Nucleotides: 080
Stems, first nucleotide, its partner, number of pairs: 003053002006050007015041002017068005026037004058074004
Number, partner (000 for none) and nucleotide at each position: 001000c002000c003053u004052u005000a006050c007049c008048u009047g010046c011045a012044u013000g014000a015041c016040u017068g018067a019066c020065g021064c022000g023000u024000u025000c026037g027036a028035g029034g030000a031000g032000c033000a034029c035028c036027u037026c038000g039000a040016g041015g042000g043000a044012g045011u046010g047009c048008a049007g050006g051000g052004a053003a054000u055000u056000c057000a058074c059073g060072c061071c062000g063000u064021g065020c066019g067018u068017c069000u070000g071061g072060g073059c074058g075000c076000c077000u078000u079000a080000a